[Rfam]
RNA sequence: GCUGAUCAAUGAUGAUGACUCCUAUAUUGUGGACUGUAGGAUGAUGCUUGCGGAUAUGGGACUGAGAUCAGUG
Numbered sequence: 001g002c003u004g005a006u007c008a009a010u011g012a013u014g015a016u017g018a019c020u021c022c023u024a025u026a027u028u029g030u031g032g033a034c035u036g037u038a039g040g041a042u043g044a045u046g047c048u049u050g051c052g053g054a055u056a057u058g059g060g061a062c063u064g065a066g067a068u069c070a071g072u073g
Stems, first nucleotide, its partner, number of pairs: 001072005

About this RNA: The record is a 73-nucleotide sequence from Scyliorhinus torazame, which matches "Small nucleolar RNA SNORD99" in Rfam. Its Rfam clan is "SNORD58 clan". The match comes from Rfam's covariance-model search (68 bits). A reference for the family is Galardi et al. (2002), "Purified box C/D snoRNPs are able to reproduce site-specific 2'-O-methylation of target RNA in vitro", Mol Cell Biol.